[Rfam]
RNA sequence: UGGGCGGGCAACAAGCGCGGGUCUGGCGGAGCGCGGCGGCGCGCGGAGAACGCGGGGCGACCGGGAGCGGCCGGGCCCUCGGCGGCGCGCCACUCGGCCGGGCCGGGAGCCGCGCCAGUCGGUGCCUCCAGCCGAGCGCGGUCCGCCUUCCUCGCAGCGAUCAGCCGUCCGGAGUGUGACCGCGGGCAUGCUGGACCCACCAGGGGCGCCGCCGCCGGCGCUCGCAGGCCGCGGGUGAAGAAGAAAGCGCGGCCUCGCUUGGCCCGGAGCGAAGAGGUGACCCGGAGCGAAGAGGUGACCCGGAGCGAAGAGGUGACCCGGAACGAAGAGGUGGUCCGAAGCGAAGAGGUGGUCCGAAGCGAAGAGGUG
Numbered sequence: 001u002g003g004g005c006g007g008g009c010a011a012c013a014a015g016c017g018c019g020g021g022u023c024u025g026g027c028g029g030a031g032c033g034c035g036g037c038g039g040c041g042c043g044c045g046g047a048g049a050a051c052g053c054g055g056g057g058c059g060a061c062c063g064g065g066a067g068c069g070g071c072c073g074g075g076c077c078c079u080c081g082g083c084g085g086c087g088c089g090c091c092a093c094u095c096g097g098c099c100g101g102g103c104c105g106g107g108a109g110c111c112g113c114g115c116c117a118g119u120c121g122g123u124g125c126c127u128c129c130a131g132c133c134g135a136g137c138g139c140g141g142u143c144c145g146c147c148u149u150c151c152u153c154g155c156a157g158c159g160a161u162c163a164g165c166c167g168u169c170c171g172g173a174g175u176g177u178g179a180c181c182g183c184g185g186g187c188a189u190g191c192u193g194g195a196c197c198c199a200c201c202a203g204g205g206g207c208g209c210c211g212c213c214g215c216c217g218g219c220g221c222u223c224g225c226a227g228g229c230c231g232c233g234g235g236u237g238a239a240g241a242a243g244a245a246a247g248c249g250c251g252g253c254c255u256c257g258c259u260u261g262g263c264c265c266g267g268a269g270c271g272a273a274g275a276g277g278u279g280a281c282c283c284g285g286a287g288c289g290a291a292g293a294g295g296u297g298a299c300c301c302g303g304a305g306c307g308a309a310g311a312g313g314u315g316a317c318c319c320g321g322a323a324c325g326a327a328g329a330g331g332u333g334g335u336c337c338g339a340a341g342c343g344a345a346g347a348g349g350u351g352g353u354c355c356g357a358a359g360c361g362a363a364g365a366g367g368u369g
Stems, first nucleotide, its partner, number of pairs: 020104008038093001041090002043053003061082005067076002144351006167187005204223008256271005
This 369-nucleotide sequence from Camelus dromedarius belongs to the Rfam family "Bag-1 internal ribosome entry site (IRES)". Rfam describes the family as follows. This family represents the bag-1 internal ribosome entry site (IRES). When expressed the BAG-1 protein is known to enhance the anti-apoptotic properties of Bcl-2. Although bag-1 translation usually occurs via a cap-dependent mechanism it has been found to contain a IRES in its 5' UTR. Translation via the IRES has been found to be common following heat shock when cap-dependent scanning is compromised. The base pairs follow the family's consensus structure, which was predicted with PFOLD. For this family Rfam cites "The p36 isoform of BAG-1 is translated by internal ribosome entry following heat shock" (Coldwell et al., Oncogene, 2001).